This 186-nucleotide sequence from Oryza sativa belongs to the Rfam family "Small nucleolar RNA Z242". The literature on the family includes a 2003 paper in Nucleic Acids Res by Chen et al., "The high diversity of snoRNAs in plants: identification and comparative study of 120 snoRNA genes from Oryza sativa". Its family is annotated with nucleolus and RNA processing in the Gene Ontology. The base pairs follow the family's consensus structure, which was predicted with PFOLD.
[Rfam]
RNA sequence: AGGGACGAGGACGAUGGCUGGCCAAAUACAGCUGGUGAUGGAGCCGGUGGCGGUGGCCCGUCGAGCCGACAGAAACUGCAGAGCAUGCAUGGUGGCCGGUCCGCAGUGAUAAUCUCAUCACAUCAGCUGGUCGAUCUGCAAAUGCAGACCUGAACAUGAAAAUCCUGAAACUCUGAAGUGAUUUCA
Numbered sequence: 001a002g003g004g005a006c007g008a009g010g011a012c013g014a015u016g017g018c019u020g021g022c023c024a025a026a027u028a029c030a031g032c033u034g035g036u037g038a039u040g041g042a043g044c045c046g047g048u049g050g051c052g053g054u055g056g057c058c059c060g061u062c063g064a065g066c067c068g069a070c071a072g073a074a075a076c077u078g079c080a081g082a083g084c085a086u087g088c089a090u091g092g093u094g095g096c097c098g099g100u101c102c103g104c105a106g107u108g109a110u111a112a113u114c115u116c117a118u119c120a121c122a123u124c125a126g127c128u129g130g131u132c133g134a135u136c137u138g139c140a141a142a143u144g145c146a147g148a149c150c151u152g153a154a155c156a157u158g159a160a161a162a163u164c165c166u167g168a169a170a171c172u173c174u175g176a177a178g179u180g181a182u183u184u185c186a
Stems, first nucleotide, its partner, number of pairs: 002185004008179001063102001065100004070095001077089003